Source information
Rfam assigns this 335-nucleotide part of an RNA from Clostridium fungisolvens to the family "Bacterial large subunit ribosomal RNA". Its Rfam clan is "LSU clan".
[Rfam]
RNA sequence: CGGAAGAAUUACAGUUAAGGAACUCGGCAAAUUGACCCCGUAACUUCGGGAGAAGGGGUGCCUACGAGAGUAGGUCGCAGAGAAUAGGCCCAAGCAACUGUUUAGCAAAAACACAGGUCUCUGCUAAAGCGAAAGCUGAUGUAUAGGGGCUGACGCCUGCCCGGUGCUGGAAGGUUAAGGGGAAUCGUUAGCGGUAACGCGAAGCGGUGAACUUAAGCCCCAGUAAACGGCGGCCGUAACUAUAACGGUCCUAAGGUAGCGAAAUUCCUUGUCAGGUAAGUUCUGACCCGCACGAAUGGCGUAAUGACUUGGGCACUGUCUCAACUGUAAAUCCG
Dot-bracket structure: ((((....((((((((.(((..............(((((....(....).....)))))((((((....))))))(...).......(((((((((..(((.........)))..(((((((((...(((....)))...)..))))))))..((((.(((..(((((((..(((...((...(((((..((......))...)))))...))...))))))))..)))))((((((.......))))))(...).....(.........((((((.....))))))).........))))...)).)))))))....))).)))))))).))))